[Rfam]
RNA sequence: AGGGCUGGUCGAAAGACCCGGGUCCACAUAAUGACGGGCGGGACGCCC
Numbered sequence: 001a002g003g004g005c006u007g008g009u010c011g012a013a014a015g016a017c018c019c020g021g022g023u024c025c026a027c028a029u030a031a032u033g034a035c036g037g038g039c040g041g042g043a044c045g046c047c048c
Stems, first nucleotide, its partner, number of pairs: 002025005007018004
The family of this 48-nucleotide sequence from Eubacterium oxidoreducens is "DUF3800-XI RNA".
Taxonomically the source falls in Eubacterium (Bacteria, Bacillati, Bacillota, Eubacteriales).
From the family's description: Actinobacteria, Firmicutes, Proteobacteria, Spirochaetes (1 example).
The family's RNA type in Rfam is small RNA.
The match comes from Rfam's covariance-model search (51 bits).
The family's consensus secondary structure is taken from published work.